[Rfam]
RNA sequence: ACCUUUCUGAAUCCGUGCUAAGAUCUCGUCAGACACAAACCCAUUAGGGUUGAUCAGACUUCCAAGGUGAGUGAAGUU
Numbered sequence: 001a002c003c004u005u006u007c008u009g010a011a012u013c014c015g016u017g018c019u020a021a022g023a024u025c026u027c028g029u030c031a032g033a034c035a036c037a038a039a040c041c042c043a044u045u046a047g048g049g050u051u052g053a054u055c056a057g058a059c060u061u062c063c064a065a066g067g068u069g070a071g072u073g074a075a076g077u078u
Stems, first nucleotide, its partner, number of pairs: 003076004008071001011068003016064002020061003024058003028054003
mir-3492 microRNA precursor family: a 78-nucleotide RNA from Schistosoma bovis. Taxonomically the source falls in Schistosoma (Eukaryota, Eumetazoa, Strigeidida, Schistosomatoidea). Pairs were carried over by alignment from the consensus structure, which was predicted with RNAalifold. A search with the family's covariance model found it, with a score of 54 bits.